The record is an 88-nucleotide sequence, which matches "GA-cis RNA" in Rfam. It is one of the family's seed sequences.

[Rfam]
RNA sequence: GUGAGGCGACAUCCAUAUGGGCGAAGCCCAUAUUUAGGAUGAUGUCGCCGACCUGCCGCCGAGCGAAUGCGAGGGGGCGAUACCCGUG
Numbered sequence: 001g002u003g004a005g006g007c008g009a010c011a012u013c014c015a016u017a018u019g020g021g022c023g024a025a026g027c028c029c030a031u032a033u034u035u036a037g038g039a040u041g042a043u044g045u046c047g048c049c050g051a052c053c054u055g056c057c058g059c060c061g062a063g064c065g066a067a068u069g070c071g072a073g074g075g076g077g078c079g080a081u082a083c084c085c086g087u088g
Stems, first nucleotide, its partner, number of pairs: 008046006016032006055078003059074002063070002